[Rfam]
RNA sequence: GUUGCUUCUGAGAGUUGAGUGACUAUUUUAUUAGUAGGUCCUUCUUAGAACUGAAGCAUAAAUGAAAUUCGAAUGCCAGUCUUAAACAGCAUAAUGAAAACCUAUGUCAUUGUGUUACCUGUCUACUGGUAAAUUU
Numbered sequence: 001g002u003u004g005c006u007u008c009u010g011a012g013a014g015u016u017g018a019g020u021g022a023c024u025a026u027u028u029u030a031u032u033a034g035u036a037g038g039u040c041c042u043u044c045u046u047a048g049a050a051c052u053g054a055a056g057c058a059u060a061a062a063u064g065a066a067a068u069u070c071g072a073a074u075g076c077c078a079g080u081c082u083u084a085a086a087c088a089g090c091a092u093a094a095u096g097a098a099a100a101c102c103u104a105u106g107u108c109a110u111u112g113u114g115u116u117a118c119c120u121g122u123c124u125a126c127u128g129g130u131a132a133a134u135u136u
Base pairs, nucleotide, nucleotide: 003058004057005056006055007054008053017044018043019042021040022039023038024037075130076129077128078127079126080125088116089115090114092112093111094110095109096108
Record summary
Shown here is a 136-nucleotide sequence from Kalanchoe fedtschenkoi, a member of the family "small nucleolar RNA snoR137". Pairs were carried over by alignment from the consensus structure, which was predicted with RNAalifold. Rfam links the family to the GO terms RNA processing and nucleolus. Taxonomically the source falls in Kalanchoe (Eukaryota, Viridiplantae, Streptophytina, Tracheophyta). The family's RNA type in Rfam is H/ACA-box small nucleolar RNA.